[Rfam]
RNA sequence: CCCGCGGUUAGACGGAAAGACCCCGUGCACCUUUACUAUAGCUUUGCAUUGGUACAAGGUAGAUUUUGUGUAGAAUAGGUGGGAGGCUUUGAAGCAUUGGCGCUAGCUGAUGUGGAGCCAACCUUGAAAUACCACCCUGAAUCUAUUUGGUAUCUAACUGAGCGCUGUCAUCCAGCGCCAGGACCAUGCAUGGUGGGUAGUUUGACUGGGGCAGUCGCCUCCUAAAUUGUAACGGAGGCGCGCGAUGGUAAGCUCAGGCUGGACAGAAAUCAGCUGUAGCGUGCAAUGGCACAAGCUUGCCUGACUGUAAGACAUACAAGUCGAACAGAGACGAAAGUCGGUCAUAGUGACCCGGUGAUCCCUCAUGGAAGGGUCAUCGAUCAACGGAUAAAAGGUACGCCGGGGAUAACAGGCUUAUCCCUCCCAAGAGUUCUUAUCGACGGGGGGGUUUGGCACCUCGAUGUCGGCUCAUCGCAUCCUGGGGCUGUAGAAGGUCCCAAGGGUUUGGCUGUUCGCCAAUUAAAGCGGUACGUGAGCUGGGUUCAGAACGUCGUGAGACAGUUCGGUCCCUAUCUGCCGUGGGUGUU
Numbered sequence: 001c002c003c004g005c006g007g008u009u010a011g012a013c014g015g016a017a018a019g020a021c022c023c024c025g026u027g028c029a030c031c032u033u034u035a036c037u038a039u040a041g042c043u044u045u046g047c048a049u050u051g052g053u054a055c056a057a058g059g060u061a062g063a064u065u066u067u068g069u070g071u072a073g074a075a076u077a078g079g080u081g082g083g084a085g086g087c088u089u090u091g092a093a094g095c096a097u098u099g100g101c102g103c104u105a106g107c108u109g110a111u112g113u114g115g116a117g118c119c120a121a122c123c124u125u126g127a128a129a130u131a132c133c134a135c136c137c138u139g140a141a142u143c144u145a146u147u148u149g150g151u152a153u154c155u156a157a158c159u160g161a162g163c164g165c166u167g168u169c170a171u172c173c174a175g176c177g178c179c180a181g182g183a184c185c186a187u188g189c190a191u192g193g194u195g196g197g198u199a200g201u202u203u204g205a206c207u208g209g210g211g212c213a214g215u216c217g218c219c220u221c222c223u224a225a226a227u228u229g230u231a232a233c234g235g236a237g238g239c240g241c242g243c244g245a246u247g248g249u250a251a252g253c254u255c256a257g258g259c260u261g262g263a264c265a266g267a268a269a270u271c272a273g274c275u276g277u278a279g280c281g282u283g284c285a286a287u288g289g290c291a292c293a294a295g296c297u298u299g300c301c302u303g304a305c306u307g308u309a310a311g312a313c314a315u316a317c318a319a320g321u322c323g324a325a326c327a328g329a330g331a332c333g334a335a336a337g338u339c340g341g342u343c344a345u346a347g348u349g350a351c352c353c354g355g356u357g358a359u360c361c362c363u364c365a366u367g368g369a370a371g372g373g374u375c376a377u378c379g380a381u382c383a384a385c386g387g388a389u390a391a392a393a394g395g396u397a398c399g400c401c402g403g404g405g406a407u408a409a410c411a412g413g414c415u416u417a418u419c420c421c422u423c424c425c426a427a428g429a430g431u432u433c434u435u436a437u438c439g440a441c442g443g444g445g446g447g448g449u450u451u452g453g454c455a456c457c458u459c460g461a462u463g464u465c466g467g468c469u470c471a472u473c474g475c476a477u478c479c480u481g482g483g484g485c486u487g488u489a490g491a492a493g494g495u496c497c498c499a500a501g502g503g504u505u506u507g508g509c510u511g512u513u514c515g516c517c518a519a520u521u522a523a524a525g526c527g528g529u530a531c532g533u534g535a536g537c538u539g540g541g542u543u544c545a546g547a548a549c550g551u552c553g554u555g556a557g558a559c560a561g562u563u564c565g566g567u568c569c570c571u572a573u574c575u576g577c578c579g580u581g582g583g584u585g586u587u
Base pairs, nucleotide, nucleotide: 001583002582003581004580005579006578007577008576010575011574012573014570015569022404023403024402025401027400028399029396030395031394032393033392035201036200037199038198042193043192045190046189047188048187051154052153053152054151055150057148058147059146060145061144062143063142064141065140066139068137078136079135080134081133082132085119086118087117094113095112096111097110098109099108100107101106158181159180160179162178163177164176165175166174167173204216205215206214207213217239218238219237220236221235222234240385242342243341248300249299250298251297252296253295255279257275258274259273260272261271262270281290282289305328306327307326308325311322312321313320330339331338332337353379354378355377356376357375358374359373361372362371413454414453415452417451418448419447420446421445422444423443424442428438429437465540466538467537468536469535470532471529472528473527474526475525478503479502481498482497483496484495485494486493505519506518507517508516509515546564547563548562549561550559551558552557
Dot-bracket structure: ((((((((.(((.((......((((.(((((((.((((...((.((((..(((((.((((((((((.(.........(((((..(((......((((((((....))))))))...)))............)))))).)))))))))).)))))...(((.((((((.....))))))))).....)))).))....))))..((((.....))))((((((...........))))))(.((....((((((.(.((((((.......))))))...).((......))....))))))....((((..(((......)))..)))).(((....))).))..........(((((((.((........))))))))).....)......)))))..))))))........(((.((((((((...((.......))...)))))))..))))..........(((((((((((..((.((((((......))))))...)).(((((.....))))).....)))))..)..)))).).....(((((((....))).))))....))..)))))))))))....
Background:
Bacterial large subunit ribosomal RNA: a 587-nucleotide part of an RNA from Holospora undulata. Gene Ontology terms of the family: ribosome and structural constituent of ribosome. The match comes from Rfam's covariance-model search (2712 bits).